[Rfam]
RNA sequence: ACGCCGUCCCGAGCGGCGUCCAGGGCUCUUCACGGGGCCUGUGGGGCGGGGGUGGUGCCGUGUCGGCGCAGCACCACCCCUGUGCC
Number, nucleotide and partner (000 for none) at each position: 001a019002c018003g017004c016005c015006g014007u013008c000009c000010c000011g000012a000013g007014c006015g005016g004017c003018g002019u001020c044021c043022a042023g000024g040025g039026c037027u036028c035029u000030u000031c000032a000033c000034g000035g028036g027037g026038c000039c025040u024041g000042u022043g021044g020045g000046g083047c082048g081049g080050g079051g078052g077053u076054g075055g074056u073057g072058c071059c000060g069061u068062g067063u000064c000065g000066g000067c062068g061069c060070a000071g058072c057073a056074c055075c054076a053077c052078c051079c050080c049081u048082g047083u046084g000085c000086c000
RNA: Streptomyces RNA 6106
Organism: Streptomyces sp. WAC 01438